A member of the RNA family "Small nucleolar RNA SNORD72" from Podarcis lilfordi, 82 nucleotides long.
RNA sequence: AGCUUAUCUAUGAUGCCUACAAAAAACAAAAGUCUGAACAUCUGAGUUCAUAAGUGAUUUCAUUUUUUAACUGAGAUAAGCU
Numbered sequence: 001a002g003c004u005u006a007u008c009u010a011u012g013a014u015g016c017c018u019a020c021a022a023a024a025a026a027c028a029a030a031a032g033u034c035u036g037a038a039c040a041u042c043u044g045a046g047u048u049c050a051u052a053a054g055u056g057a058u059u060u061c062a063u064u065u066u067u068u069a070a071c072u073g074a075g076a077u078a079a080g081c082u
Base pairs, nucleotide, nucleotide: 002081003080004079005078006077007076008075
On this family, see Huttenhofer et al., EMBO J 2001: "RNomics: an experimental approach that identifies 201 candidates for novel, small, non-messenger RNAs in mouse". Pairs were carried over by alignment from the consensus structure. Rfam's curators write: snoRNA HBII-240 belongs to the CD family of snoRNAs. It is the human orthologue of the mouse MBII-240 and is predicted to guide 2'O-ribose methylation of the large 28S rRNA at residue U4590. Gene Ontology terms of the family: nucleolus and RNA processing. Rfam 15.1 lists 726 matches to the family in 499 species. By type it is a C/D-box small nucleolar RNA.